[Rfam]
RNA: Flavo-1 RNA
RNA sequence: AAGUUGCCCCGAUUGCAGCGGCAUCCUUUUUUGUGGCGGCGAAGCGAAGCGGAGCCGCCGUAAAAAAGAUACAGCGGAAAGCGGGAAUUGCU
Numbered sequence: 001a002a003g004u005u006g007c008c009c010c011g012a013u014u015g016c017a018g019c020g021g022c023a024u025c026c027u028u029u030u031u032u033g034u035g036g037c038g039g040c041g042a043a044g045c046g047a048a049g050c051g052g053a054g055c056c057g058c059c060g061u062a063a064a065a066a067a068g069a070u071a072c073a074g075c076g077g078a079a080a081g082c083g084g085g086a087a088u089u090g091c092u
Stems, first nucleotide, its partner, number of pairs: 009084003013080002018075002023070003029065012